[Rfam]
RNA: Vibrio RNA AS9
Organism: Polynucleobacter victoriensis
RNA sequence: UUGCUCACAGCGCUCGCGGGUGAGUGUUAGGCAAAUCAAGCCACGGCCAUAUUUGGCCAUGAAAUUAAUUGCUUCUGGCGUGACAUGGUCUGCUGCUAGAACUA
Numbered sequence: 001u002u003g004c005u006c007a008c009a010g011c012g013c014u015c016g017c018g019g020g021u022g023a024g025u026g027u028u029a030g031g032c033a034a035a036u037c038a039a040g041c042c043a044c045g046g047c048c049a050u051a052u053u054u055g056g057c058c059a060u061g062a063a064a065u066u067a068a069u070u071g072c073u074u075c076u077g078g079c080g081u082g083a084c085a086u087g088g089u090c091u092g093c094u095g096c097u098a099g100a101a102c103u104a
Stems, first nucleotide, its partner, number of pairs: 003058001005056003009028007035050002041045001066104002069101002071096002075092001077090001079087002